Description
A member of the RNA family "Small nucleolar RNA Z105" from Brassica rapa, 68 nucleotides long. It is one of the family's seed sequences. Taxonomically the source falls in Brassica rapa (Eukaryota, Streptophytina, Brassicales, Brassicaceae).
RNA sequence: AAGGCAUGAUGAGGAUUGUUUAUUGUCAUCUGAUUUUCUGAUGAAUCAAUACCUCCUACUCAUUCUGA
Numbered sequence: 001a002a003g004g005c006a007u008g009a010u011g012a013g014g015a016u017u018g019u020u021u022a023u024u025g026u027c028a029u030c031u032g033a034u035u036u037u038c039u040g041a042u043g044a045a046u047c048a049a050u051a052c053c054u055c056c057u058a059c060u061c062a063u064u065c066u067g068a
Base pairs, nucleotide, nucleotide: 006063007062008061009060026044027043030040